[Rfam]
RNA sequence: GGAGGAUUGGCCGAGCGGCCUAAGGCGCACGAUUGGAAAUCGUGUUGGGGUAACACCCUCACGGGUUCGAAUCCCGUAUCCUCCG
Number, nucleotide and partner (000 for none) at each position: 001g084002g083003a082004g081005g080006a079007u078008u000009g000010g026011c025012c024013g000014a000015g000016c000017g000018g000019c000020c000021u000022a000023a000024g012025g011026c010027g000028c044029a043030c042031g041032a040033u000034u000035g000036g000037a000038a000039a000040u032041c031042g030043u029044g028045u000046u000047g000048g000049g000050g000051u000052a000053a000054c000055a000056c000057c000058c000059u000060c000061a077062c076063g075064g074065g073066u000067u000068c000069g000070a000071a000072u000073c065074c064075c063076g062077u061078a007079u006080c005081c004082u003083c002084c001085g000
Record summary: This 85-nucleotide RNA sequence from Actinomycetospora sp. TBRC 11914 belongs to the Rfam family "tRNA". Its family is annotated with triplet codon-amino acid adaptor activity in the Gene Ontology. The source organism's lineage runs through Bacteria, Bacillati, Actinomycetota, Pseudonocardiales and Actinomycetospora.